Record summary
The family of this 393-nucleotide RNA from a Gammaproteobacteria bacterium is "Bacterial RNase P class A".
RNA sequence: GGAGUUGGCUAGACAGUCGCUCCGGUGUUAACUAAAUAAUUCUCCUGAGUAUUAUUCGGUGCAUCGGGGAGGAAAGUCCGGGCUCCAUAGGGCAGAGCGCCAGGUAACGCCUGGGAGGUGUGAGCCUACGGAAAGUGCAACAGAAAGCAAACCGCCUAAGCGAUCCAGUUGUGCAGUCGGAUCGCCGGUAAGGGUGAAAGGGUGCGGUAAGAGCGCACCGCGCGGCUGGUAACAGUCCGUGGCACGGUAAACCCCGCUCGGAGCAAGACCAAAUAGGAAUCCUGAGGUGUGGCCCGCACUGGAUUCGGGUAGGUUGCUUGAGGUAUGCGGCGACGUAUAUCCCAGAUGAAUGAUUGUCCACGACAGAACCCGGCUUACCGGCCAACUCCACCU
Numbered sequence: 001g002g003a004g005u006u007g008g009c010u011a012g013a014c015a016g017u018c019g020c021u022c023c024g025g026u027g028u029u030a031a032c033u034a035a036a037u038a039a040u041u042c043u044c045c046u047g048a049g050u051a052u053u054a055u056u057c058g059g060u061g062c063a064u065c066g067g068g069g070a071g072g073a074a075a076g077u078c079c080g081g082g083c084u085c086c087a088u089a090g091g092g093c094a095g096a097g098c099g100c101c102a103g104g105u106a107a108c109g110c111c112u113g114g115g116a117g118g119u120g121u122g123a124g125c126c127u128a129c130g131g132a133a134a135g136u137g138c139a140a141c142a143g144a145a146a147g148c149a150a151a152c153c154g155c156c157u158a159a160g161c162g163a164u165c166c167a168g169u170u171g172u173g174c175a176g177u178c179g180g181a182u183c184g185c186c187g188g189u190a191a192g193g194g195u196g197a198a199a200g201g202g203u204g205c206g207g208u209a210a211g212a213g214c215g216c217a218c219c220g221c222g223c224g225g226c227u228g229g230u231a232a233c234a235g236u237c238c239g240u241g242g243c244a245c246g247g248u249a250a251a252c253c254c255c256g257c258u259c260g261g262a263g264c265a266a267g268a269c270c271a272a273a274u275a276g277g278a279a280u281c282c283u284g285a286g287g288u289g290u291g292g293c294c295c296g297c298a299c300u301g302g303a304u305u306c307g308g309g310u311a312g313g314u315u316g317c318u319u320g321a322g323g324u325a326u327g328c329g330g331c332g333a334c335g336u337a338u339a340u341c342c343c344a345g346a347u348g349a350a351u352g353a354u355u356g357u358c359c360a361c362g363a364c365a366g367a368a369c370c371c372g373g374c375u376u377a378c379c380g381g382c383c384a385a386c387u388c389c390a391c392c393u
Base pairs, nucleotide, nucleotide: 001389002388003387004386005385006384007383008382009381010380012358013357014356015355016354017353018352020069021068022067023066024065025064026063027062028061074376075375076374078373079372080371081370082369083263084262085261086260090295091294092293093292095259096258097257098256099255100114101113102112103111104110115129116127117126118125119124130254131253135252136251137248138247152193153192154189155188156187162182164180201219202218203217204216205215206214220243221241222240223239224238225237226235227234228233267315268314269313270312277306278305279304280303281302282301286300287299288298289297290296322341323340324339325338326337327336328335329334
The base pairs follow the family's consensus structure, which is taken from published work. From the family's description: Ribonuclease P (RNase P) is a ubiquitous endoribonuclease, found in archaea, bacteria and eukarya as well as chloroplasts and mitochondria. Its best characterised activity is the generation of mature 5'-ends of tRNAs by cleaving the 5'-leader elements of precursor-tRNAs. The match comes from Rfam's covariance-model search (333 bits).